[Rfam]
RNA: FMN riboswitch aptamer (RFN element)
RNA sequence: UCCAAUCUUCGGGGCAGGGUGAAAUUCCCGACCGGCGGUAAUAAGCAGAGAUGCUUUAAGUCCGCGAACUGCAUGGUUGAUUGCCAUGCGGUUGACCUGGUGCAACUCCAGGACCGACAGUUACAGUCUGGAUGGGAGAAGAUAUCG
Numbered sequence: 001u002c003c004a005a006u007c008u009u010c011g012g013g014g015c016a017g018g019g020u021g022a023a024a025u026u027c028c029c030g031a032c033c034g035g036c037g038g039u040a041a042u043a044a045g046c047a048g049a050g051a052u053g054c055u056u057u058a059a060g061u062c063c064g065c066g067a068a069c070u071g072c073a074u075g076g077u078u079g080a081u082u083g084c085c086a087u088g089c090g091g092u093u094g095a096c097c098u099g100g101u102g103c104a105a106c107u108c109c110a111g112g113a114c115c116g117a118c119a120g121u122u123a124c125a126g127u128c129u130g131g132a133u134g135g136g137a138g139a140a141g142a143u144a145u146c147g
Stems, first nucleotide, its partner, number of pairs: 005143006017029003031127002033116002035065004060114002068092003096112005118130003